The record is a 62-nucleotide sequence from Menura novaehollandiae, which matches "Small nucleolar RNA SNORD24" in Rfam.
The family's consensus secondary structure was predicted with PFOLD.
The family has 14 seed sequences and 2,843 matches in Rfam 15.1.
NCBI's taxonomy places the organism under Eukaryota, Teleostomi, Sauropsida, Theropoda, Menura.
Rfam classes the family as a C/D-box small nucleolar RNA.
On this family, see Qu et al., Nucleic Acids Res 1995: "U24, a novel intron-encoded small nucleolar RNA with two 12 nt long, phylogenetically conserved complementarities to 28S rRNA".

RNA sequence: UGCAAAUGAUGAUCACUUCUUGCUGCCUAAAUGUGAUGACAACCACCAAGAUCGCUGAUGCA
Numbered sequence: 001u002g003c004a005a006a007u008g009a010u011g012a013u014c015a016c017u018u019c020u021u022g023c024u025g026c027c028u029a030a031a032u033g034u035g036a037u038g039a040c041a042a043c044c045a046c047c048a049a050g051a052u053c054g055c056u057g058a059u060g061c062a
Stems, first nucleotide, its partner, number of pairs: 001062004